Rfam assigns this 88-nucleotide RNA sequence from Bombyx mori to the family "mir-2780 microRNA precursor family".
The organism belongs to Bombyx, within Eukaryota.
Gene Ontology terms of the family: RISC complex and miRNA-mediated post-transcriptional gene silencing.
The literature on the family includes a 2010 paper in BMC Genomics by Liu et al., "MicroRNAs of Bombyx mori identified by Solexa sequencing".
The family has 7 seed sequences and 2,157 matches in Rfam 15.1.

[Rfam]
RNA sequence: CCACGGUGAAAAGGGUGUUAAAUGAAGACUUAAGGCUUCGGGCAUAUCGAAGAAAAACAGGACAUCGUUUGAAUGCUCGUCUAAUGGA
Numbered sequence: 001c002c003a004c005g006g007u008g009a010a011a012a013g014g015g016u017g018u019u020a021a022a023u024g025a026a027g028a029c030u031u032a033a034g035g036c037u038u039c040g041g042g043c044a045u046a047u048c049g050a051a052g053a054a055a056a057a058c059a060g061g062a063c064a065u066c067g068u069u070u071g072a073a074u075g076c077u078c079g080u081c082u083a084a085u086g087g088a
Stems, first nucleotide, its partner, number of pairs: 001087003008081002013078006019071007027063001029061003036052006